Rfam assigns this 116-nucleotide sequence from Dendrobium nobile to the family "Small nucleolar RNA snoR104".
RNA sequence: GGGGAAUAUCCAGAAGCAAGGGAAAGCCCGAUAUAAUCUUCCAACAUUAAAUUUGUAAUUUCCUACUUGCAGUAAUUUAAGUAAGCUCUGCAAGUUUCAGGUUACAAGACAAGAGA
Numbered sequence: 001g002g003g004g005a006a007u008a009u010c011c012a013g014a015a016g017c018a019a020g021g022g023a024a025a026g027c028c029c030g031a032u033a034u035a036a037u038c039u040u041c042c043a044a045c046a047u048u049a050a051a052u053u054u055g056u057a058a059u060u061u062c063c064u065a066c067u068u069g070c071a072g073u074a075a076u077u078u079a080a081g082u083a084a085g086c087u088c089u090g091c092a093a094g095u096u097u098c099a100g101g102u103u104a105c106a107a108g109a110c111a112a113g114a115g116a
Stems, first nucleotide, its partner, number of pairs: 001029003007024001009022003054109001056107001065095008076084001

Gene Ontology terms of the family: nucleolus and RNA processing. The family's RNA type in Rfam is H/ACA-box small nucleolar RNA.